Source information
U11 spliceosomal RNA: a 129-nucleotide RNA from Agrilus planipennis. Lineage of the source: Eukaryota > Metazoa > Neoptera > Polyphaga > Agrilus. A search with the family's covariance model found it, with a score of 96 bits. The family has 72 seed sequences and 2,595 matches in Rfam 15.1. The family's RNA type in Rfam is spliceosomal small nuclear RNA.
RNA sequence: AAAAAGGGUGUUUACCACUUUAUGGUACACGAACCUUAAUGGUUCGUGGGGUAUGGUAAUCAAGACAUACCCAACACACAAUUUUUGGAAACGUGAGGCUGCUGUUUGUCAUUGAGCAAAGGCGCCUCC
Numbered sequence: 001a002a003a004a005a006g007g008g009u010g011u012u013u014a015c016c017a018c019u020u021u022a023u024g025g026u027a028c029a030c031g032a033a034c035c036u037u038a039a040u041g042g043u044u045c046g047u048g049g050g051g052u053a054u055g056g057u058a059a060u061c062a063a064g065a066c067a068u069a070c071c072c073a074a075c076a077c078a079c080a081a082u083u084u085u086u087g088g089a090a091a092c093g094u095g096a097g098g099c100u101g102c103u104g105u106u107u108g109u110c111a112u113u114g115a116g117c118a119a120a121g122g123c124g125c126c127u128c129c
Base pairs, nucleotide, nucleotide: 008077009076010075011074012073013027014026015025016024017023028048029047030046031045032044033043034042035041049072050071051070052069053068054067055066096127097126098125099124101123102122103121105119107118108117109116110114